[Rfam]
RNA sequence: AUGAUAAAAGGAAAUGGUGUUCUUCCUUACCCAACCGCUUUACAUAAGCUGAUGACGCCUGAUUAAUA
Numbered sequence: 001a002u003g004a005u006a007a008a009a010g011g012a013a014a015u016g017g018u019g020u021u022c023u024u025c026c027u028u029a030c031c032c033a034a035c036c037g038c039u040u041u042a043c044a045u046a047a048g049c050u051g052a053u054g055a056c057g058c059c060u061g062a063u064u065a066a067u068a
Stems, first nucleotide, its partner, number of pairs: 010026004016059006037049004

Rfam assigns this 68-nucleotide RNA from Chryseobacterium piperi to the family "Fluoride riboswitch aptamer (crcB RNA motif)". Pairs were carried over by alignment from the consensus structure, which is taken from published work. Lineage of the source: Bacteria > Flavobacteriia > Flavobacteriales > Weeksellaceae > Chryseobacterium.